[Rfam]
RNA sequence: AUUUACGUCCUUAACGCGCCAUUAAGCUUUCCUGCCUAUUACUAAUACUUGUCCAUCUUCAUGGACUUUGAGUGGCUCCUGUCCACUCUGUUUGACGCCUCCCUGUUAUCUAACUUGAGCCGCCGGCAACGGCGGCUCCUUUUUU
Numbered sequence: 001a002u003u004u005a006c007g008u009c010c011u012u013a014a015c016g017c018g019c020c021a022u023u024a025a026g027c028u029u030u031c032c033u034g035c036c037u038a039u040u041a042c043u044a045a046u047a048c049u050u051g052u053c054c055a056u057c058u059u060c061a062u063g064g065a066c067u068u069u070g071a072g073u074g075g076c077u078c079c080u081g082u083c084c085a086c087u088c089u090g091u092u093u094g095a096c097g098c099c100u101c102c103c104u105g106u107u108a109u110c111u112a113a114c115u116u117g118a119g120c121c122g123c124c125g126g127c128a129a130c131g132g133c134g135g136c137u138c139c140u141u142u143u144u145u
Base pairs, nucleotide, nucleotide: 001046002045003044006016018040023038024037026035027034051066052065053064054063070088071087072086073085074084075083094107095106096105097104117138118137119136120135121134122133123132124131125130